[Rfam]
RNA sequence: UGGCUGUAGCUAUAUGAAUGAAUAUAUGUUUACUGGCCGGUUAUUGUUUUUGGGAUUCCUUCUGCUGGAGGGGUCUCUCUAGUUGACAUAUCUGCUUACCGAACUUCUUACUUUU
Numbered sequence: 001u002g003g004c005u006g007u008a009g010c011u012a013u014a015u016g017a018a019u020g021a022a023u024a025u026a027u028g029u030u031u032a033c034u035g036g037c038c039g040g041u042u043a044u045u046g047u048u049u050u051u052g053g054g055a056u057u058c059c060u061u062c063u064g065c066u067g068g069a070g071g072g073g074u075c076u077c078u079c080u081a082g083u084u085g086a087c088a089u090a091u092c093u094g095c096u097u098a099c100c101g102a103a104c105u106u107c108u109u110a111c112u113u114u115u
Stems, first nucleotide, its partner, number of pairs: 024108001026106001028104003035096003039092003044086003
RNA: Small nucleolar RNA snoR109